Background
small nucleolar RNA snoR143: a 162-nucleotide RNA from Punica granatum. The family's RNA type in Rfam is H/ACA-box small nucleolar RNA. Rfam links the family to the GO terms nucleolus and RNA processing. The organism belongs to Punica, within Eukaryota.
RNA sequence: CUGCACUUAUCUCGUAGGCCUCUCUAGUUUGAUAGUUUGGUCUUGAGCGAAAGGUGCACAAACUGAUAGCUGUUUAAUCAGCAGCGGCCAGACAACCGUAGAGUUGGAUCCACAGGUGAAUGGUUUAAAGUGCUACUUGCCUACUGAUUCCACCUCACAUUC
Numbered sequence: 001c002u003g004c005a006c007u008u009a010u011c012u013c014g015u016a017g018g019c020c021u022c023u024c025u026a027g028u029u030u031g032a033u034a035g036u037u038u039g040g041u042c043u044u045g046a047g048c049g050a051a052a053g054g055u056g057c058a059c060a061a062a063c064u065g066a067u068a069g070c071u072g073u074u075u076a077a078u079c080a081g082c083a084g085c086g087g088c089c090a091g092a093c094a095a096c097c098g099u100a101g102a103g104u105u106g107g108a109u110c111c112a113c114a115g116g117u118g119a120a121u122g123g124u125u126u127a128a129a130g131u132g133c134u135a136c137u138u139g140c141c142u143a144c145u146g147a148u149u150c151c152a153c154c155u156c157a158c159a160u161u162c
Base pairs, nucleotide, nucleotide: 002058003057004056005055006054011049013047015045016044017043018042020040021039022035023034101156102155103154105152106151107150108149119138120137121135122134123133